[Rfam]
A member of the RNA family "mir-205 microRNA precursor family" from Bucco capensis, 74 nucleotides long. Pairs were carried over by alignment from the consensus structure, which was predicted with RNAalifold.
RNA sequence: UCCUGACACCCUUCAUUCCACCGGAAUCUGUCGCUGCAGAAAGCAGAUUUCAGCGGAAUGAAGCCUGUCAGAGA
Numbered sequence: 001u002c003c004u005g006a007c008a009c010c011c012u013u014c015a016u017u018c019c020a021c022c023g024g025a026a027u028c029u030g031u032c033g034c035u036g037c038a039g040a041a042a043g044c045a046g047a048u049u050u051c052a053g054c055g056g057a058a059u060g061a062a063g064c065c066u067g068u069c070a071g072a073g074a
Base pairs, nucleotide, nucleotide: 011063012062013061014060015059016058019055021053023051024050025049026048028046029045030044